Shown here is a 141-nucleotide RNA from Olsenella uli, a member of the family "FMN riboswitch aptamer (RFN element)". Rfam's curators write: The RFN element is a highly conserved domain that is found frequently in the 5'-untranslated regions of prokaryotic mRNAs that encode for flavin mononucleotide (FMN) biosynthesis and transport proteins. The organism belongs to Olsenella uli, within Bacteria.
RNA sequence: UGACAGUUUCAGGGCGGGGCGAAACUCCCCACCGGCGGUGACGGGCCCCGUGCCCCAAGUCCGCGCGCCACGACGAAAAGAGUGGCUGACCUGGUGAGACUCCGGGACCGACGGUUACAGUCCGGACGAGAGAAACGGAAG
Number, nucleotide and partner (000 for none) at each position: 001u000002g000003a000004c138005a000006g136007u135008u134009u133010c132011a000012g000013g000014g000015c000016g000017g029018g028019g027020c000021g000022a000023a000024a000025c000026u000027c019028c018029c017030c000031a121032c120033c110034g109035g064036c063037g062038g061039u000040g000041a000042c000043g000044g000045g000046c000047c000048c000049c000050g000051u000052g000053c000054c000055c000056c000057a000058a000059g108060u107061c038062c037063g036064c035065g000066c000067g086068c085069c084070a000071c000072g000073a000074c000075g000076a000077a000078a000079a000080g000081a000082g000083u000084g069085g068086c067087u000088g000089a000090c106091c105092u104093g103094g102095u000096g000097a000098g000099a000100c000101u000102c094103c093104g092105g091106g090107a060108c059109c034110g033111a000112c124113g123114g122115u000116u000117a000118c000119a000120g032121u031122c114123c113124g112125g000126a000127c000128g000129a000130g000131a000132g010133a009134a008135a007136c006137g000138g004139a000140a000141g000
A search with the family's covariance model found it, with a score of 101 bits.